[Rfam]
The family of this 409-nucleotide sequence from Buchnera aphidicola is "Bacterial RNase P class A".
The match comes from Rfam's covariance-model search (234 bits).
Rfam classes the family as a ribozyme.
Gene Ontology terms of the family: tRNA processing, ribonuclease P activity and dimeric ribonuclease P complex.

RNA sequence: AAAAUUGACCAAACAGUCGCUAUUUAACAAUGAUAAUAUUAAAUAGAGGAAAGUCCGGGCUCCAUAGAGCAAGGCGCCAGAUAAUCCCUGGGAAGUAUUAAUGCUGACGACAAGUGCAACAGAAAAAAUACCGCUUGAAUUACAUAUAAUAUUUUAUCAUUAUUAUAUAAAAUAUUUAAGUAAGGGUGAAAAGGAGUGUUAAAAGCACACCGCAUAUUUAGUAAUAAAUAUGGCUAUGCAAACUCCGCCUGGAGAAAAGUUAAAUAAGAUUACGUACAGCUCUGUAUCAUAAAAUCUGGGUAAACUGCUGAAACCGUAAAGUAAUUUUUUUUUUUUUUUUUUUUUUUUUUUUGGGGUUUAGAUAAAUGACUGUUUCUUACAGAACCCGGCUUAUAGGUCAAUUUUAUUA
Numbered sequence: 001a002a003a004a005u006u007g008a009c010c011a012a013a014c015a016g017u018c019g020c021u022a023u024u025u026a027a028c029a030a031u032g033a034u035a036a037u038a039u040u041a042a043a044u045a046g047a048g049g050a051a052a053g054u055c056c057g058g059g060c061u062c063c064a065u066a067g068a069g070c071a072a073g074g075c076g077c078c079a080g081a082u083a084a085u086c087c088c089u090g091g092g093a094a095g096u097a098u099u100a101a102u103g104c105u106g107a108c109g110a111c112a113a114g115u116g117c118a119a120c121a122g123a124a125a126a127a128a129u130a131c132c133g134c135u136u137g138a139a140u141u142a143c144a145u146a147u148a149a150u151a152u153u154u155u156a157u158c159a160u161u162a163u164u165a166u167a168u169a170a171a172a173u174a175u176u177u178a179a180g181u182a183a184g185g186g187u188g189a190a191a192a193g194g195a196g197u198g199u200u201a202a203a204a205g206c207a208c209a210c211c212g213c214a215u216a217u218u219u220a221g222u223a224a225u226a227a228a229u230a231u232g233g234c235u236a237u238g239c240a241a242a243c244u245c246c247g248c249c250u251g252g253a254g255a256a257a258a259g260u261u262a263a264a265u266a267a268g269a270u271u272a273c274g275u276a277c278a279g280c281u282c283u284g285u286a287u288c289a290u291a292a293a294a295u296c297u298g299g300g301u302a303a304a305c306u307g308c309u310g311a312a313a314c315c316g317u318a319a320a321g322u323a324a325u326u327u328u329u330u331u332u333u334u335u336u337u338u339u340u341u342u343u344u345u346u347u348u349u350u351u352u353g354g355g356g357u358u359u360a361g362a363u364a365a366a367u368g369a370c371u372g373u374u375u376c377u378u379a380c381a382g383a384a385c386c387c388g389g390c391u392u393a394u395a396g397g398u399c400a401a402u403u404u405u406a407u408u409a
Base pairs, nucleotide, nucleotide: 001405002404003403004402005401006400007399008398009397010396011394012374013373014372015371016370017369018368020046021045022044023043024042025041026040027039051392052391053390055389056388057387058386059385060254061253062252063251067282068281069280070279072250073249074248075247076246077091078090079089080088092108094105095104096103109245110244114243115242116239117238118237131185132184133181134180135179136178137177138176139175140174193211194210196208197207198206212234213232214231215230216229217228218227219226220225258306259305260304261303267297268296269295270294271293313357314356315355317353318352319351320350